[Rfam]
RNA sequence: UGCAAGGGCACUCUGUGUUAUUCAUUUUUAAUAUGAUAAUUACAAUUUGUUACCUUGCUACAGUAAAUCUGCCAAACCCUAUUCCUGAUGGUUCUCGUAACUAUUUGGUCAUAUUGGGAGAUACAUAAU
Numbered sequence: 001u002g003c004a005a006g007g008g009c010a011c012u013c014u015g016u017g018u019u020a021u022u023c024a025u026u027u028u029u030a031a032u033a034u035g036a037u038a039a040u041u042a043c044a045a046u047u048u049g050u051u052a053c054c055u056u057g058c059u060a061c062a063g064u065a066a067a068u069c070u071g072c073c074a075a076a077c078c079c080u081a082u083u084c085c086u087g088a089u090g091g092u093u094c095u096c097g098u099a100a101c102u103a104u105u106u107g108g109u110c111a112u113a114u115u116g117g118g119a120g121a122u123a124c125a126u127a128a129u
Stems, first nucleotide, its partner, number of pairs: 002058006010050002014044003017040005023035002064128001066126001067122003072118002076115001082111001085108004089103002

The record is a 129-nucleotide sequence from Galleria mellonella, which matches "Small nucleolar RNA psi18S-841/snoR66" in Rfam. The base pairs follow the family's consensus structure, which was predicted with RNAfold. From the family's description: psi18S-841 is a member of the H/ACA class of snoRNA. This family is responsible for guiding the modification of uridine 841 in Drosophila 18S rRNA to pseudouridine. The match comes from Rfam's covariance-model search (56 bits). The family is grouped with related families in Rfam's "SNORA28 clan". The organism belongs to Galleria, within Eukaryota.